[Rfam]
RNA sequence: AACUUAUCCAGAGAUGGUGGAGGGACUGGCCCGAUGAAGCCCAGCAACCGGCAGUGAUGUACGGUGCUAAUUCCUGCAGGGAUAUCCCUGAGAGAUAAGAC
Numbered sequence: 001a002a003c004u005u006a007u008c009c010a011g012a013g014a015u016g017g018u019g020g021a022g023g024g025a026c027u028g029g030c031c032c033g034a035u036g037a038a039g040c041c042c043a044g045c046a047a048c049c050g051g052c053a054g055u056g057a058u059g060u061a062c063g064g065u066g067c068u069a070a071u072u073c074c075u076g077c078a079g080g081g082a083u084a085u086c087c088c089u090g091a092g093a094g095a096u097a098a099g100a101c
Stems, first nucleotide, its partner, number of pairs: 003099006013042001016041003022032003026076001028074002043068004048064002051060003072093001077090005
Notes:
The record is a 101-nucleotide RNA from Heliophilum fasciatum, which matches "SAM riboswitch aptamer (S box leader)" in Rfam. The organism belongs to Heliophilum, within Bacteria. The base pairs follow the family's consensus structure, which is taken from published work. It scores 80 bits against the family's covariance model.